[Rfam]
RNA sequence: AGGUGAGGUAGAGGUCGCAGCUUAUAAAAGUAGUUUGCUUGAGGCUCAGCACAGCCAUGGAAAGUGAACGAAAGGAUACGUUGCCGAAGUUUCUAUACGUUGCUGUGUAUAGGGGCUGGGAUUGUUUCCAAAUAGGGGCAAGACUGUCACAGCCGGCAUGCCAAUCCGCUGUGGAGAGCUAUCUUCGAU
Numbered sequence: 001a002g003g004u005g006a007g008g009u010a011g012a013g014g015u016c017g018c019a020g021c022u023u024a025u026a027a028a029a030g031u032a033g034u035u036u037g038c039u040u041g042a043g044g045c046u047c048a049g050c051a052c053a054g055c056c057a058u059g060g061a062a063a064g065u066g067a068a069c070g071a072a073a074g075g076a077u078a079c080g081u082u083g084c085c086g087a088a089g090u091u092u093c094u095a096u097a098c099g100u101u102g103c104u105g106u107g108u109a110u111a112g113g114g115g116c117u118g119g120g121a122u123u124g125u126u127u128c129c130a131a132a133u134a135g136g137g138g139c140a141a142g143a144c145u146g147u148c149a150c151a152g153c154c155g156g157c158a159u160g161c162c163a164a165u166c167c168g169c170u171g172u173g174g175a176g177a178g179c180u181a182u183c184u185u186c187g188a189u
Stems, first nucleotide, its partner, number of pairs: 006184006017084005023078003033069008088117012118145002122141007147174007
Shown here is a 189-nucleotide RNA from Desulfosporosinus sp. Sb-LF, a member of the family "Lysine riboswitch aptamer". A search with the family's covariance model found it, with a score of 125 bits. The source organism's lineage runs through Bacteria, Bacillati, Bacillota, Clostridia and Desulfosporosinus.